[Rfam]
RNA sequence: CCUGACCCUAAAGGUGUUGGAAGUGUGGCUGCUGUGUCACAUGUGUGUCAGUAGGUGGCAAAGAGGAGAAAGACUAUGUCUAUACUCAGUGUUCAGAAUGAUGAACAUCUAAAUGAUUAGUAGUUUAGAAAA
Numbered sequence: 001c002c003u004g005a006c007c008c009u010a011a012a013g014g015u016g017u018u019g020g021a022a023g024u025g026u027g028g029c030u031g032c033u034g035u036g037u038c039a040c041a042u043g044u045g046u047g048u049c050a051g052u053a054g055g056u057g058g059c060a061a062a063g064a065g066g067a068g069a070a071a072g073a074c075u076a077u078g079u080c081u082a083u084a085c086u087c088a089g090u091g092u093u094c095a096g097a098a099u100g101a102u103g104a105a106c107a108u109c110u111a112a113a114u115g116a117u118u119a120g121u122a123g124u125u126u127a128g129a130a131a132a
Base pairs, nucleotide, nucleotide: 003060004059006057007055008054009053010052013049014048015047019046021044024041025040026039027038028037029036071126072125073124074123075122076121077120083115084114086112088110089109090107091106092105093104094103

Shown here is a 132-nucleotide sequence from Rattus norvegicus, a member of the family "Small nucleolar RNA SNORA17". snoRNA ACA 17 belongs to the H/ACA family of snoRNAs and is predicted to guide pseudouridylation of the 28S rRNA at positions U4659 and U4598. It shares the same host gene together with ACA43. NB This family has a high threshold value to exclude a large number of closely related sequences that do not appear to have conserved H and ACA boxes, and may be pseudogenes. The literature on the family includes a 1997 paper in J Mol Biol by Ofengand and Bakin, "Mapping to nucleotide resolution of pseudouridine residues in large subunit ribosomal RNAs from representative eukaryotes, prokaryotes, archaebacteria, mitochondria and chloroplasts". A search with the family's covariance model found it, with a score of 101 bits. It is annotated as an H/ACA-box small nucleolar RNA.